[Rfam]
RNA sequence: GAGGAUAUGGUGAUGAAACGAAUAAUUUCGUGGACUAGAGUUUCAGAUCUGGGCUCUUCACCCAGAAGUUGAAGAUACAACCCUUGGCUGUCUGAGUAUCUCU
Dot-bracket structure: (.((((((................................((((...((((((.......))))).)...)))).....................)))))).)